RT-3 RNA: a 157-nucleotide RNA. It is annotated as a small RNA.
RNA sequence: UUUGGGCGUACAACAAAGGAGACGUGUCCUCAACGUGGAGCCCAGGGAAAUGAACCUCACUAACAGCAAGUUUUUACAAACUUGGAAAAGUGGAACAUAAAGCGUUGGGUGGAGUUUGGUAGGGCAUAUUUUAUUGCAGCCGAAGAAGUCAGACCCA
Numbered sequence: 001u002u003u004g005g006g007c008g009u010a011c012a013a014c015a016a017a018g019g020a021g022a023c024g025u026g027u028c029c030u031c032a033a034c035g036u037g038g039a040g041c042c043c044a045g046g047g048a049a050a051u052g053a054a055c056c057u058c059a060c061u062a063a064c065a066g067c068a069a070g071u072u073u074u075u076a077c078a079a080a081c082u083u084g085g086a087a088a089a090g091u092g093g094a095a096c097a098u099a100a101a102g103c104g105u106u107g108g109g110u111g112g113a114g115u116u117u118g119g120u121a122g123g124g125c126a127u128a129u130u131u132u133a134u135u136g137c138a139g140c141c142g143a144a145g146a147a148g149u150c151a152g153a154c155c156c157a
Stems, first nucleotide, its partner, number of pairs: 003044005011038001013036002018031002021028002046056002057093005067084007106157005112150002115147003122140001124137003